[Rfam]
RNA sequence: UGGUAGAUGCACCCUGGUUGAGGCUCCGGACUAAAUAUCCGGGGCAUUUUUUU
Numbered sequence: 001u002g003g004u005a006g007a008u009g010c011a012c013c014c015u016g017g018u019u020g021a022g023g024c025u026c027c028g029g030a031c032u033a034a035a036u037a038u039c040c041g042g043g044g045c046a047u048u049u050u051u052u053u
Stems, first nucleotide, its partner, number of pairs: 002013003023045008032037001